This 126-nucleotide RNA sequence from Faecalicatena orotica belongs to the Rfam family "FMN riboswitch aptamer (RFN element)". A search with the family's covariance model found it, with a score of 122 bits. NCBI's taxonomy places the organism under Bacteria, Bacillati, Clostridia, Lachnospirales, Faecalicatena.

[Rfam]
RNA sequence: AAAAUUCUUCGGGGUCGGGUGUAAUUCCCAACCGGCGGUAUAGUCCGCGACCUGCUAUUUUCGGAUAGUGGCUGAACUGGUGCAAUUCCAGUACCGACAGUAAAGUCUGGAUGAAAGAAGAAAUUU
Numbered sequence: 001a002a003a004a005u006u007c008u009u010c011g012g013g014g015u016c017g018g019g020u021g022u023a024a025u026u027c028c029c030a031a032c033c034g035g036c037g038g039u040a041u042a043g044u045c046c047g048c049g050a051c052c053u054g055c056u057a058u059u060u061u062c063g064g065a066u067a068g069u070g071g072c073u074g075a076a077c078u079g080g081u082g083c084a085a086u087u088c089c090a091g092u093a094c095c096g097a098c099a100g101u102a103a104a105g106u107c108u109g110g111a112u113g114a115a116a117g118a119a120g121a122a123a124u125u126u
Stems, first nucleotide, its partner, number of pairs: 003124001005122006017029003031106002033096002035048004043094002052071002076092005098109003